RNA: c-di-GMP-I riboswitch aptamer
Organism: Salisediminibacterium beveridgei
Nucleotides: 085
Base pairs, nucleotide, nucleotide: 012037013036017032018031019030020029021028022027040079041078042077043076046075047074048071049070050069055065056064057063058062
Number, partner (000 for none) and nucleotide at each position: 001000a002000a003000c004000a005000c006000a007000u008000a009000u010000g011000g012037g013036c014000a015000a016000a017032c018031c019030u020029g021028u022027u023000g024000a025000a026000a027022a028021g029020c030019a031018g032017g033000g034000a035000c036013g037012c038000a039000a040079a041078g042077c043076c044000a045000a046075g047074g048071g049070u050069c051000u052000u053000c054000a055065u056064c057063a058062g059000u060000u061000u062058c063057u064056g065055a066000u067000a068000u069050g070049a071048c072000a073000g074047c075046c076043g077042g078041u079040u080000g081000c082000a083000a084000u085000c